[Rfam]
Nucleotides: 069
Stems, first nucleotide, its partner, number of pairs: 001018004006014003027045007
Number, partner (000 for none) and nucleotide at each position: 001018g002017g003016c004015c005000a006014c007013c008012u009000u010000c011000g012008g013007g014006g015004g016003g017002c018001u019000u020000u021000a022000c023000c024000a025000u026000c027045g028044g029043c030042a031041a032040a033039g034000c035000a036000u037000c038000g039033c040032u041031u042030u043029g044028c045027c046000g047000c048000u049000u050000a051000a052000g053000c054000a055000a056000a057000c058000g059000g060000a061000a062000g063000a064000c065000a066000g067000a068000a069000a